[Rfam]
RNA sequence: GUAUUGUGGGGACCACCUCGAUCCGAGGUGUUGGGCAAUAGCCAGCCAUGACGGCAUCACCGCGAGACCUAAACCCCUUCGCGCCUGACAAGCCUGCCGUCAUAGCCAGCGAAGCCAUUUUUUUGC
Dot-bracket structure: .....((((.(..(((((((...)))))))...(((....))).((..((((((((......((((...........)))).............))))))))..))...)....))))........
The record is a 126-nucleotide RNA sequence, which matches "Burkholderia sRNA 39" in Rfam. A search with the family's covariance model found it, with a score of 104 bits. It is annotated as a small RNA. The literature on the family includes a 2014 paper in BMC Genomics by Stubben et al., "Differential expression of small RNAs from Burkholderia thailandensis in response to varying environmental and stress conditions". Gene Ontology term of the family: bacterial biofilm matrix. The family's consensus secondary structure was predicted with RNAfold. Rfam describes the family as follows. Trans-encoded, exhibits differential expression profiles dependent on growth phase and cell stimuli, such as antbiotics and serum. May function in bacterial metabolism and adaptation to the host. Shown to be expressed in biotin.